[Rfam]
RNA sequence: UACAGAAAAAGGCACAGCAGGCGAAAGCCUGUGUCGCAAAGCCACGGAUUUAAACGGCGCUCGCGCCGCACGGCAGCCGGUUGCCAAA
Number, nucleotide and partner (000 for none) at each position: 001u000002a000003c000004a000005g000006a000007a000008a000009a000010a000011g000012g037013c036014a000015c000016a000017g032018c031019a030020g029021g028022c027023g000024a000025a000026a000027g022028c021029c020030u019031g018032u017033g000034u000035c000036g013037c012038a000039a000040a082041g081042c080043c079044a000045c000046g078047g077048a000049u073050u072051u000052a000053a000054a000055c068056g067057g066058c065059g000060c000061u000062c000063g000064c000065g058066c057067c056068g055069c000070a000071c000072g050073g049074c000075a000076g000077c047078c046079g043080g042081u041082u040083g000084c000085c000086a000087a000088a000
Annotation
c-di-GMP-I riboswitch aptamer: an 88-nucleotide RNA sequence from Ruminococcaceae bacterium AF10-16. GEMM was predicted in a large-scale screen for bacterial structured RNA regulatory elements. It scores 64 bits against the family's covariance model. Lineage of the source: Bacteria > Bacillati > Clostridia > Eubacteriales > Oscillospiraceae.